[Rfam]
RNA: Small nucleolar RNA snoR136
RNA sequence: GUGGCUUCGGAUCUUAAUUUUUUUAUGCUGGCACUUUUUAAAUCGUGUUUGCAAUGUUUAACUGAAGCCUAUAAUUGUGUUCCCCUCGCUAUCCAAUAUUGCAUUUUUUAUGUUCUAAUUGGACGUCGGGGAACUAAAUUU
Numbered sequence: 001g002u003g004g005c006u007u008c009g010g011a012u013c014u015u016a017a018u019u020u021u022u023u024u025a026u027g028c029u030g031g032c033a034c035u036u037u038u039u040a041a042a043u044c045g046u047g048u049u050u051g052c053a054a055u056g057u058u059u060a061a062c063u064g065a066a067g068c069c070u071a072u073a074a075u076u077g078u079g080u081u082c083c084c085c086u087c088g089c090u091a092u093c094c095a096a097u098a099u100u101g102c103a104u105u106u107u108u109u110a111u112g113u114u115c116u117a118a119u120u121g122g123a124c125g126u127c128g129g130g131g132a133a134c135u136a137a138a139u140u141u
Base pairs, nucleotide, nucleotide: 001072002071003069004068005067008064009063010062012060016057017055018054026053027052028051030049031048032047033046034045079134080133081132082131083130084129085128087125088124092123093122094121095120096119101113102112103111